RNA sequence: UAAGGAGCAAUGCCAACCCUCUUGAUAGAACAAGAAAUUGGCGAUUGCUCCUUUUUUU
Dot-bracket structure: .(((((((((((((.....(((((......)))))....))).)))))))))).....
Numbered sequence: 001u002a003a004g005g006a007g008c009a010a011u012g013c014c015a016a017c018c019c020u021c022u023u024g025a026u027a028g029a030a031c032a033a034g035a036a037a038u039u040g041g042c043g044a045u046u047g048c049u050c051c052u053u054u055u056u057u058u
Stems, first nucleotide, its partner, number of pairs: 002053010012042003020035005
Rfam assigns this 58-nucleotide RNA sequence from Salix brachista to the family "Plastid-psbA-3 3UTR RNA". The family's RNA type in Rfam is cis-regulatory element. A search with the family's covariance model found it, with a score of 54 bits. Plastid psbA-3 is a non-coding RNA (ncRNA) present in plastids. It was identified in inverted repeat sequences in the 3 prime untranslate region (3UTR) of photosystem II quinone-binding protein (psbA). A reference for the family is Richter et al. (2023), "Retrograde signaling in plants: A critical review focusing on the GUN pathway and beyond", Plant Commun.